[Rfam]
RNA sequence: AGGUCAUUCAAAGAGAGCUUGUGGAACUAAAACCAGGAGAUCUUAAUGCUAGGACUGAACAUUGAAGUUCUCCAUAGGAUGUAAUAGGCAAUUCAUAGUGCCGUGUUUUACUAAGGAGAUGUAAGA
Dot-bracket structure: .((((.(.....((((.(((.(((........)).)))).))))......).))))............(((((..((.(....((.(.((.(....).))).))....).))..))))).......
RNA: Small nucleolar RNA SNORA25
Organism: Myotis davidii